[Rfam]
Nucleotides: 131
Stems, first nucleotide, its partner, number of pairs: 014117006023108011
Number, partner (000 for none) and nucleotide at each position: 001000c002000u003000u004000a005000c006000a007000g008000a009000g010000u011000u012000c013000a014117u015116u016115g017114g018113c019112a020000u021000u022000c023108u024107g025106u026105c027104c028103a029102c030101c031100u032099c033098c034000u035000g036000a037000u038000c039000a040000u041000c042000u043000u044000c045000a046000u047000a048000g049000a050000a051000a052000u053000u054000a055000a056000a057000a058000u059000a060000u061000g062000a063000u064000c065000u066000u067000u068000a069000a070000u071000u072000a073000a074000u075000u076000u077000c078000u079000u080000u081000c082000a083000c084000u085000u086000g087000u088000c089000a090000u091000c092000u093000u094000u095000c096000a097000u098033g099032g100031a101030g102029g103028u104027g105026g106025g107024c108023a109000u110000a111000c112019u113018g114017c115016c116015a117014a118000c119000a120000g121000u122000g123000c124000u125000c126000u127000g128000u129000u130000g131000g
Shown here is a 131-nucleotide RNA from Corchorus capsularis, a member of the family "MIR394 microRNA precursor family". Gene Ontology terms of the family: RISC complex and miRNA-mediated post-transcriptional gene silencing. The base pairs follow the family's consensus structure, which was predicted with WAR. Lineage of the source: Eukaryota > Embryophyta > Gunneridae > Pentapetalae > Corchorus. A search with the family's covariance model found it, with a score of 90 bits.